[Rfam]
RNA sequence: CAUCCCAUUGAUUUGCUGCUGUGGUCUCUUAGUAAUAUGAGCAGUUCUACACAUGGGAAAGAAAAGAGCAAUAUUAAGACAUUGUAAAUGGAGAUGGAGUAACCAUUUCAUCCAUUAUGCACAGUUCAGACAUUG
Numbered sequence: 001c002a003u004c005c006c007a008u009u010g011a012u013u014u015g016c017u018g019c020u021g022u023g024g025u026c027u028c029u030u031a032g033u034a035a036u037a038u039g040a041g042c043a044g045u046u047c048u049a050c051a052c053a054u055g056g057g058a059a060a061g062a063a064a065a066g067a068g069c070a071a072u073a074u075u076a077a078g079a080c081a082u083u084g085u086a087a088a089u090g091g092a093g094a095u096g097g098a099g100u101a102a103c104c105a106u107u108u109c110a111u112c113c114a115u116u117a118u119g120c121a122c123a124g125u126u127c128a129g130a131c132a133u134u135g
Stems, first nucleotide, its partner, number of pairs: 003058006015045006022037002025035001074129002077126002083121004093112008
This 135-nucleotide RNA sequence from Suricata suricatta belongs to the Rfam family "Small nucleolar RNA SNORA20". It is annotated as an H/ACA-box small nucleolar RNA. The family's consensus secondary structure was predicted with ILM. Rfam's curators write: ACA20 is a member of the H/ACA class of snoRNA that guide the sites of modification of uridines to pseudouridines. Rfam 15.1 lists 437 matches to the family in 157 species. The source organism's lineage runs through Eukaryota, Vertebrata, Sarcopterygii, Herpestidae and Suricata.